[Rfam]
RNA sequence: GGGUGGGUCGGCCCGUGGCCUCGACAAGCGGCAAUGGCAAGAGACGGCGGGCCAGGGGGCUCCGCCGCCACAAUCCCCGCGGGCGGCGGACCGGUCCGGGAGGCGUGCGGACGCCUCCCGGACUGUU
Numbered sequence: 001g002g003g004u005g006g007g008u009c010g011g012c013c014c015g016u017g018g019c020c021u022c023g024a025c026a027a028g029c030g031g032c033a034a035u036g037g038c039a040a041g042a043g044a045c046g047g048c049g050g051g052c053c054a055g056g057g058g059g060c061u062c063c064g065c066c067g068c069c070a071c072a073a074u075c076c077c078c079g080c081g082g083g084c085g086g087c088g089g090a091c092c093g094g095u096c097c098g099g100g101a102g103g104c105g106u107g108c109g110g111a112c113g114c115c116u117c118c119c120g121g122a123c124u125g126u127u
Stems, first nucleotide, its partner, number of pairs: 001126001006092003010053007018045001055060001062089008093124013
RNA: Streptomyces RNA 4115
Organism: Streptomyces sp. So13.3